[Rfam]
RNA: FMN riboswitch aptamer (RFN element)
Organism: Oceanobacillus halophilus
RNA sequence: UAAUUCCUUCGGGGCAGGGUGUAAUUCCCUACCGGCGGUGAUGAAGCAAUGCUUCUAAGUCCGUGACCCGUGCGGUUGUCAAACCAAGCGGUGGAUCUGGUGAGAUUCCAGAACCGACAGUUAAAGUCUGGAUGGGAGAAGGGAUAC
Numbered sequence: 001u002a003a004u005u006c007c008u009u010c011g012g013g014g015c016a017g018g019g020u021g022u023a024a025u026u027c028c029c030u031a032c033c034g035g036c037g038g039u040g041a042u043g044a045a046g047c048a049a050u051g052c053u054u055c056u057a058a059g060u061c062c063g064u065g066a067c068c069c070g071u072g073c074g075g076u077u078g079u080c081a082a083a084c085c086a087a088g089c090g091g092u093g094g095a096u097c098u099g100g101u102g103a104g105a106u107u108c109c110a111g112a113a114c115c116g117a118c119a120g121u122u123a124a125a126g127u128c129u130g131g132a133u134g135g136g137a138g139a140a141g142g143g144a145u146a147c
Stems, first nucleotide, its partner, number of pairs: 003145008017029003031127002033116002035064004059114002068091004096112005118130003